[Rfam]
RNA: mir-31 microRNA precursor family
RNA sequence: GUUGUUCAAUUGGCAAGAUGUCGGCAUAGCUGACGUUUGAAAGCGCAUUUUUAUAGCGCUAUGCUGCAUCUAGUCAGUUAUUCAAU
Numbered sequence: 001g002u003u004g005u006u007c008a009a010u011u012g013g014c015a016a017g018a019u020g021u022c023g024g025c026a027u028a029g030c031u032g033a034c035g036u037u038u039g040a041a042a043g044c045g046c047a048u049u050u051u052u053a054u055a056g057c058g059c060u061a062u063g064c065u066g067c068a069u070c071u072a073g074u075c076a077g078u079u080a081u082u083c084a085a086u
Stems, first nucleotide, its partner, number of pairs: 006080001008079007016071005022066009